[Rfam]
RNA sequence: CCCUGCCGACCGCCGAGGGCGCACCUCGAGCACGAGAGGCAGGGACGGGGGACCCAGGAGUGCGGGCACCACGGUGCCCUCGGGGUGAAGCCACGACGUGGCCGGGAGACUUCCGCCCGAACCCGACAGCUAACCUCGCAGGCGUACGGGAGGUCUUGU
Numbered sequence: 001c002c003c004u005g006c007c008g009a010c011c012g013c014c015g016a017g018g019g020c021g022c023a024c025c026u027c028g029a030g031c032a033c034g035a036g037a038g039g040c041a042g043g044g045a046c047g048g049g050g051g052a053c054c055c056a057g058g059a060g061u062g063c064g065g066g067c068a069c070c071a072c073g074g075u076g077c078c079c080u081c082g083g084g085g086u087g088a089a090g091c092c093a094c095g096a097c098g099u100g101g102c103c104g105g106g107a108g109a110c111u112u113c114c115g116c117c118c119g120a121a122c123c124c125g126a127c128a129g130c131u132a133a134c135c136u137c138g139c140a141g142g143c144g145u146a147c148g149g150g151a152g153g154u155c156u157u158g159u
Stems, first nucleotide, its partner, number of pairs: 004144004011044001013042001046138005055082001083124003091101004104118003
RNA: c-di-AMP riboswitch aptamer (ydaO/yuaA leader)
Organism: Cellulomonas fimi